The family of this 148-nucleotide sequence from Halopseudomonas salegens is "Pseudomonas sRNA P11". For this family Rfam cites "Identification of 17 Pseudomonas aeruginosa sRNAs and prediction of sRNA-encoding genes in 10 diverse pathogens using the bioinformatic tool sRNAPredict2" (Livny et al., Nucleic Acids Res, 2006). The organism belongs to Halopseudomonas, within Bacteria. Rfam classes the family as a non-coding RNA gene. It scores 72 bits against the family's covariance model. Rfam's curators write: This small RNA (sRNA) was computationally identified in the genome of the opportunistic pathogen Pseudomonas aeruginosa and its expression verified by northern blot analysis. P11 is located between a putative threonine protein kinase and putative nitrate reductase and appears to be conserved in several Pseudomonas species.
[Rfam]
RNA sequence: GAGCUUUGAAGUUGGCACAAAGUCUGCAUUAGUACACUCAGCUAAGGCAGCUAUUACAUACAGUGCCAUUGUCAACGGCGACAGUGCACUCCUGACUUGAUCAGGAACCGGACAAAGGCGUCCUUACCGCGAGAGCGGUGGGGACGCC
Numbered sequence: 001g002a003g004c005u006u007u008g009a010a011g012u013u014g015g016c017a018c019a020a021a022g023u024c025u026g027c028a029u030u031a032g033u034a035c036a037c038u039c040a041g042c043u044a045a046g047g048c049a050g051c052u053a054u055u056a057c058a059u060a061c062a063g064u065g066c067c068a069u070u071g072u073c074a075a076c077g078g079c080g081a082c083a084g085u086g087c088a089c090u091c092c093u094g095a096c097u098u099g100a101u102c103a104g105g106a107a108c109c110g111g112a113c114a115a116a117g118g119c120g121u122c123c124u125u126a127c128c129g130c131g132a133g134a135g136c137g138g139u140g141g142g143g144a145c146g147c148c
Stems, first nucleotide, its partner, number of pairs: 012115003015027003063089004069083001072081002090106005117148007125140006